RNA sequence: CGCUUUUUUUGCCCAGGCGGAGCUCGACCGCCAACUGAAGAAGUGAACGCCUAUAUCGACGGACAUCGGGACCUGUACGGGGUCGAGCCGAUCUGCAGGGUCUUGCAGGUUGCCCCG
Numbered sequence: 001c002g003c004u005u006u007u008u009u010u011g012c013c014c015a016g017g018c019g020g021a022g023c024u025c026g027a028c029c030g031c032c033a034a035c036u037g038a039a040g041a042a043g044u045g046a047a048c049g050c051c052u053a054u055a056u057c058g059a060c061g062g063a064c065a066u067c068g069g070g071a072c073c074u075g076u077a078c079g080g081g082g083u084c085g086a087g088c089c090g091a092u093c094u095g096c097a098g099g100g101u102c103u104u105g106c107a108g109g110u111u112g113c114c115c116c117g
Stems, first nucleotide, its partner, number of pairs: 016032005078117005089112002092109007